RNA sequence: GAUUCUCAAUAAAGUGUUUUUCUUCGCAUUCUUUUUUACCUUCCCCUAAUUGGGAGGCGUUUCGUCGUGUGAUAAAGAAUGCGAAGACGAAAUAAAUAUCCUCCGGCAUAGCCGGAGGUUUUUCAUAU
Numbered sequence: 001g002a003u004u005c006u007c008a009a010u011a012a013a014g015u016g017u018u019u020u021u022c023u024u025c026g027c028a029u030u031c032u033u034u035u036u037u038a039c040c041u042u043c044c045c046c047u048a049a050u051u052g053g054g055a056g057g058c059g060u061u062u063c064g065u066c067g068u069g070u071g072a073u074a075a076a077g078a079a080u081g082c083g084a085a086g087a088c089g090a091a092a093u094a095a096a097u098a099u100c101c102u103c104c105g106g107c108a109u110a111g112c113c114g115g116a117g118g119u120u121u122u123u124c125a126u127a128u
Base pairs, nucleotide, nucleotide: 017091018090019089021087022086023085024084025083026082027081028080029079030078031077032076033075034074036072037071038070039069042055043054044053045052056066057065058064059063096122098120100118101117102116103115104114105113
Phenylalanine leader peptide: a 128-nucleotide RNA from Yersinia pestis. A reference for the family is Gurvich et al. (2010), "Two groups of phenylalanine biosynthetic operon leader peptides genes: a high level of apparently incidental frameshifting in decoding Escherichia coli pheL", Nucleic Acids Res. Gene Ontology term of the family: cellular amino acid metabolic process. NCBI's taxonomy places the organism under Bacteria, Pseudomonadota, Gammaproteobacteria, Yersinia, Yersinia pestis. Pairs were carried over by alignment from the consensus structure, which was predicted with CMfinder.